[Rfam]
RNA sequence: GAAUUUUUUUCCGAUAUAAAACACUCAUGUCGAUAAAAAAAUGAUUUGAACUCAUU
Numbered sequence: 001g002a003a004u005u006u007u008u009u010u011c012c013g014a015u016a017u018a019a020a021a022c023a024c025u026c027a028u029g030u031c032g033a034u035a036a037a038a039a040a041a042u043g044a045u046u047u048g049a050a051c052u053c054a055u056u
Stems, first nucleotide, its partner, number of pairs: 012032006
Annotation: The record is a 56-nucleotide RNA sequence from Ziziphus jujuba, which matches "Plastid-atpF group II-D1 intron" in Rfam. About the family: Plastid atpF is a non-coding RNA (ncRNA) recognised in plastids. It has been reported in the intron group II-D1 region of ATP synthase (atpF) genes. On this family, see Richter et al., Plant Commun 2023: "Retrograde signaling in plants: A critical review focusing on the GUN pathway and beyond". The organism belongs to Ziziphus jujuba, within Eukaryota.